[Rfam]
Source information
A member of the RNA family "Small nucleolar RNA SNORD116" from Carlito syrichta, 90 nucleotides long. Its family is annotated with nucleolus and RNA processing in the Gene Ontology. The family's consensus secondary structure was predicted with PFOLD. It scores 70 bits against the family's covariance model. It is annotated as a C/D-box small nucleolar RNA.

RNA sequence: UGAUCAAUAGUGACUCCCAUAUGUACAUUUCUUGGAAAGCUGAACAAAGAGUGAAAAUGUUAUACCAUCAUCCUUAUCAAAGUGAGGUUC
Numbered sequence: 001u002g003a004u005c006a007a008u009a010g011u012g013a014c015u016c017c018c019a020u021a022u023g024u025a026c027a028u029u030u031c032u033u034g035g036a037a038a039g040c041u042g043a044a045c046a047a048a049g050a051g052u053g054a055a056a057a058u059g060u061u062a063u064a065c066c067a068u069c070a071u072c073c074u075u076a077u078c079a080a081a082g083u084g085a086g087g088u089u090c
Stems, first nucleotide, its partner, number of pairs: 002089004026053005032047003